[Rfam]
RNA sequence: GACGACCGGCUGGACACGUCCGUGUCCGGCCCACAAGUGGAGGCUCCGAUCUCCCACCUGGCUGUCCCUCGGGACGGCGGGUCACCGGUCAGGCGGCCACCAUCGUUCCGUACGGACGAUGGAGUCGCCCGAUGUGCGCCCCGCGGUGGACCGCGGCGGUGCUCCGGUAUUCAUUGGAGCUGCCGCCUGUGUCCCGACCGGGGCAUUUUUG
Numbered sequence: 001g002a003c004g005a006c007c008g009g010c011u012g013g014a015c016a017c018g019u020c021c022g023u024g025u026c027c028g029g030c031c032c033a034c035a036a037g038u039g040g041a042g043g044c045u046c047c048g049a050u051c052u053c054c055c056a057c058c059u060g061g062c063u064g065u066c067c068c069u070c071g072g073g074a075c076g077g078c079g080g081g082u083c084a085c086c087g088g089u090c091a092g093g094c095g096g097c098c099a100c101c102a103u104c105g106u107u108c109c110g111u112a113c114g115g116a117c118g119a120u121g122g123a124g125u126c127g128c129c130c131g132a133u134g135u136g137c138g139c140c141c142c143g144c145g146g147u148g149g150a151c152c153g154c155g156g157c158g159g160u161g162c163u164c165c166g167g168u169a170u171u172c173a174u175u176g177g178a179g180c181u182g183c184c185g186c187c188u189g190u191g192u193c194c195c196g197a198c199c200g201g202g203g204c205a206u207u208u209u210u211g
Base pairs, nucleotide, nucleotide: 004090005089006088007087008086009085012027013026028083029082030081031080032079034060035059037057038056039055040054041052042051061078062077063076064075065074066073067072092129093128094127096126100122101121102120103119104118105117106116107115138204139203140202141201142200143199144196145195146194152191153190154189155187156186157185158184159183161180162179163178164177165176
This 211-nucleotide RNA from Streptomyces pristinaespiralis belongs to the Rfam family "Streptomyces RNA 1601". A search with the family's covariance model found it, with a score of 171 bits. Rfam describes the family as follows. Identified by deep sequencing of transcriptome at the end of exponential growth phase. It is annotated as a small RNA. NCBI's taxonomy places the organism under Bacteria, Bacillati, Actinomycetota, Actinomycetes, Streptomyces pristinaespiralis.